[Rfam]
RNA sequence: GCACAUUCUCAGGGCGGGGUGGAAUUCCCCACCGGCGGUAUGGAGGCACUGACCUUCGAGCCCGCGAGCGCAAUGGGUUUCUCGCUGAAAUCCCUUGGUCCAGCAGAUCUGGUGAGAAGCCAGAGCCGACGGUCACAGUCCGGAUGAAAGAGAAUGCGA
Numbered sequence: 001g002c003a004c005a006u007u008c009u010c011a012g013g014g015c016g017g018g019g020u021g022g023a024a025u026u027c028c029c030c031a032c033c034g035g036c037g038g039u040a041u042g043g044a045g046g047c048a049c050u051g052a053c054c055u056u057c058g059a060g061c062c063c064g065c066g067a068g069c070g071c072a073a074u075g076g077g078u079u080u081c082u083c084g085c086u087g088a089a090a091u092c093c094c095u096u097g098g099u100c101c102a103g104c105a106g107a108u109c110u111g112g113u114g115a116g117a118a119g120c121c122a123g124a125g126c127c128g129a130c131g132g133u134c135a136c137a138g139u140c141c142g143g144a145u146g147a148a149a150g151a152g153a154a155u156g157c158g159a
Stems, first nucleotide, its partner, number of pairs: 004156007017029003031139002033128002035065004060126002068104002108124005130142003

Shown here is a 159-nucleotide RNA sequence from Roseobacter cerasinus, a member of the family "FMN riboswitch aptamer (RFN element)". NCBI's taxonomy places the organism under Bacteria, Alphaproteobacteria, Rhodobacterales, Roseobacteraceae, Roseobacter.